[Rfam]
RNA sequence: UACGCGAUGCCGAAGUCGGGUCGCGGAGAUAACCACUUGCUGAUUUAUCAGGAGAUUUUCAGAUGACU
Numbered sequence: 001u002a003c004g005c006g007a008u009g010c011c012g013a014a015g016u017c018g019g020g021u022c023g024c025g026g027a028g029a030u031a032a033c034c035a036c037u038u039g040c041u042g043a044u045u046u047a048u049c050a051g052g053a054g055a056u057u058u059u060c061a062g063a064u065g066a067c068u
Base pairs, nucleotide, nucleotide: 001027003025004024005023006022007021008020010019011018012017031056036054037053038052040051041050042049043048
Record summary
A member of the RNA family "Repression of heat shock gene expression (ROSE) element" from Pseudomonas graminis, 68 nucleotides long. The family's RNA type in Rfam is RNA thermoregulator. The match comes from Rfam's covariance-model search (73 bits). On this family, see Krajewski et al., PLoS One 2013: "Short ROSE-Like RNA Thermometers Control IbpA Synthesis in Pseudomonas Species". Taxonomically the source falls in Pseudomonas (Bacteria, Pseudomonadati, Pseudomonadales, Pseudomonadaceae). Gene Ontology terms of the family: regulation of translation and response to temperature stimulus.